A member of the RNA family "Guanidine-II riboswitch aptamer (mini-ykkC)" from Ventosimonas gracilis, 48 nucleotides long. Simpler in structure and has fewer highly conserved nucleotide positions than the ykkC-yxkD leader.
[Rfam]
RNA sequence: GCUUGCGGACGACCGAAAGUCGCUUGGCCUUUUUUGGGGACGACCCCG
Numbered sequence: 001g002c003u004u005g006c007g008g009a010c011g012a013c014c015g016a017a018a019g020u021c022g023c024u025u026g027g028c029c030u031u032u033u034u035u036g037g038g039g040a041c042g043a044c045c046c047c048g
Base pairs, nucleotide, nucleotide: 001020002019003018004017006015007014008013035048036047037046038045039044